Description: A member of the RNA family "Alphaproteobacteria transfer-messenger RNA" from Sphingorhabdus profundilacus, 345 nucleotides long. Taxonomically the source falls in Sphingorhabdus (Bacteria, Pseudomonadati, Pseudomonadota, Sphingomonadales). The match comes from Rfam's covariance-model search (227 bits). On this family, see Williams and Bartel, RNA 1996: "Phylogenetic analysis of tmRNA secondary structure".

RNA sequence: UCACUUCCCAUUCACGAAAGAUCGCCUAUAUGGGUCCUUGCCGGGUUCGCCCGGCUAUGGCGAUAAAUUGCGAUGUGCAAUAGAUGCAGCGGACCCGGGGGCGGUACCCGGCAGCUCCACCAUAUCUCCCGGAUUUCCGGGCGUUUUGAAGGGGCUGAACUAGGAUCGACGUGCGUUGAAAAGCAUUGUUUUUGCCCGGCAUGGAUAAGCCGUUAAAUGGUUCAAAACUCAUAAGUGCAAACGAUAACGAAGCACUUGCUCUCGCAGCGUAAUUUUGGGCCUCACGGUCUGAAAUUAUCCUAAAAGAACGCGGCCGAACCGGCCGGGCAACAGAAAGGUUACAGC
Numbered sequence: 001u002c003a004c005u006u007c008c009c010a011u012u013c014a015c016g017a018a019a020g021a022u023c024g025c026c027u028a029u030a031u032g033g034g035u036c037c038u039u040g041c042c043g044g045g046u047u048c049g050c051c052c053g054g055c056u057a058u059g060g061c062g063a064u065a066a067a068u069u070g071c072g073a074u075g076u077g078c079a080a081u082a083g084a085u086g087c088a089g090c091g092g093a094c095c096c097g098g099g100g101g102c103g104g105u106a107c108c109c110g111g112c113a114g115c116u117c118c119a120c121c122a123u124a125u126c127u128c129c130c131g132g133a134u135u136u137c138c139g140g141g142c143g144u145u146u147u148g149a150a151g152g153g154g155c156u157g158a159a160c161u162a163g164g165a166u167c168g169a170c171g172u173g174c175g176u177u178g179a180a181a182a183g184c185a186u187u188g189u190u191u192u193u194g195c196c197c198g199g200c201a202u203g204g205a206u207a208a209g210c211c212g213u214u215a216a217a218u219g220g221u222u223c224a225a226a227a228c229u230c231a232u233a234a235g236u237g238c239a240a241a242c243g244a245u246a247a248c249g250a251a252g253c254a255c256u257u258g259c260u261c262u263c264g265c266a267g268c269g270u271a272a273u274u275u276u277g278g279g280c281c282u283c284a285c286g287g288u289c290u291g292a293a294a295u296u297a298u299c300c301u302a303a304a305a306g307a308a309c310g311c312g313g314c315c316g317a318a319c320c321g322g323c324c325g326g327g328c329a330a331c332a333g334a335a336a337g338g339u340u341a342c343a344g345c
Stems, first nucleotide, its partner, number of pairs: 040055005059196005070189007085175003089172003095111005112157007197212004202224003311325004316342001318340001320338001